RNA sequence: UAGAAUAAUGUAGGUAAGGGAAGUCGGCAAAUUAUAUCCGUAACUUCGGGAUAAGGAUUGGCUCUAAGGACUGGGCCGGUCGGGCUGUAAUGUGAAGUGAGUACGGUUUGAUCCAUGCAGUGUAACAUUAAAAUGAAAACAUUAAAAAAAAAAAAAUGUAUUCAUUUUGAUGAAACUCGGCUAGUGUUCGAACUGUCUUAUGGACCGUUAUAGCUGCAUAUCAACAUUUAUUUUUUUAUUUUUUUUUUUAAAAAAGUAAAUGUUUUAUUUGAUAUUUCGGCCGGCGUUAAACAGUCAACUUAGAACUGGCACGGACUCGGGGAAUCCGACUGUCUAAUUAAAACAGAGGAGACAGAUGGCCCUUGCGGGCGUUGACUGUCUCUGAUUUCUGCCCAGUGCUCUGAAUGUAAAAGUGAAGAAAUUCAACCAAGCGCGGGUAAACGGCGGGAGUAACUAUGACUCUCUUAAGGUAGCCAAAUGCCUCGUCAUCUAAUUCGUGACGCGCAUGAAUGGAUUAACGAGAUUCCCACUGUCCCUAUCUACUAUCUAGCGAAACCACAGCCAAGGGAACGGGCUUGGCA
Numbered sequence: 001u002a003g004a005a006u007a008a009u010g011u012a013g014g015u016a017a018g019g020g021a022a023g024u025c026g027g028c029a030a031a032u033u034a035u036a037u038c039c040g041u042a043a044c045u046u047c048g049g050g051a052u053a054a055g056g057a058u059u060g061g062c063u064c065u066a067a068g069g070a071c072u073g074g075g076c077c078g079g080u081c082g083g084g085c086u087g088u089a090a091u092g093u094g095a096a097g098u099g100a101g102u103a104c105g106g107u108u109u110g111a112u113c114c115a116u117g118c119a120g121u122g123u124a125a126c127a128u129u130a131a132a133a134u135g136a137a138a139a140c141a142u143u144a145a146a147a148a149a150a151a152a153a154a155a156a157u158g159u160a161u162u163c164a165u166u167u168u169g170a171u172g173a174a175a176c177u178c179g180g181c182u183a184g185u186g187u188u189c190g191a192a193c194u195g196u197c198u199u200a201u202g203g204a205c206c207g208u209u210a211u212a213g214c215u216g217c218a219u220a221u222c223a224a225c226a227u228u229u230a231u232u233u234u235u236u237u238a239u240u241u242u243u244u245u246u247u248u249u250a251a252a253a254a255a256g257u258a259a260a261u262g263u264u265u266u267a268u269u270u271g272a273u274a275u276u277u278c279g280g281c282c283g284g285c286g287u288u289a290a291a292c293a294g295u296c297a298a299c300u301u302a303g304a305a306c307u308g309g310c311a312c313g314g315a316c317u318c319g320g321g322g323a324a325u326c327c328g329a330c331u332g333u334c335u336a337a338u339u340a341a342a343a344c345a346g347a348g349g350a351g352a353c354a355g356a357u358g359g360c361c362c363u364u365g366c367g368g369g370c371g372u373u374g375a376c377u378g379u380c381u382c383u384g385a386u387u388u389c390u391g392c393c394c395a396g397u398g399c400u401c402u403g404a405a406u407g408u409a410a411a412a413g414u415g416a417a418g419a420a421a422u423u424c425a426a427c428c429a430a431g432c433g434c435g436g437g438u439a440a441a442c443g444g445c446g447g448g449a450g451u452a453a454c455u456a457u458g459a460c461u462c463u464c465u466u467a468a469g470g471u472a473g474c475c476a477a478a479u480g481c482c483u484c485g486u487c488a489u490c491u492a493a494u495u496c497g498u499g500a501c502g503c504g505c506a507u508g509a510a511u512g513g514a515u516u517a518a519c520g521a522g523a524u525u526c527c528c529a530c531u532g533u534c535c536c537u538a539u540c541u542a543c544u545a546u547c548u549a550g551c552g553a554a555a556c557c558a559c560a561g562c563c564a565a566g567g568g569a570a571c572g573g574g575c576u577u578g579g580c581a
Stems, first nucleotide, its partner, number of pairs: 001549004010543007018535003036058004044049001060307002063304006069296005075285009084214003088210004097201004103196009113186001114184001117181002120178001122176002126172012308312001320528007327520002331345003348383008359370004387514003391445003396442002398438004403434001406433003414425004446464006465469001485501005562579005
RNA: Eukaryotic large subunit ribosomal RNA, nucleotides 2262 to 2842
Organism: Brugia malayi